[Rfam]
RNA sequence: AGUUGCUAGGCAGUGUAGUUAGCUGAUUGCUAACAGUACCCAAUCACUAACUACACGGCCAAGUAAAA
Numbered sequence: 001a002g003u004u005g006c007u008a009g010g011c012a013g014u015g016u017a018g019u020u021a022g023c024u025g026a027u028u029g030c031u032a033a034c035a036g037u038a039c040c041c042a043a044u045c046a047c048u049a050a051c052u053a054c055a056c057g058g059c060c061a062a063g064u065a066a067a068a
Base pairs, nucleotide, nucleotide: 003066004065005064006063009060010059013056014055015054016053017052018051019050020049021048022047024046025045026044027043028042029041
Dot-bracket structure: ..((((..((..((((((((((.((((((...........))))))))))))))))..))..))))..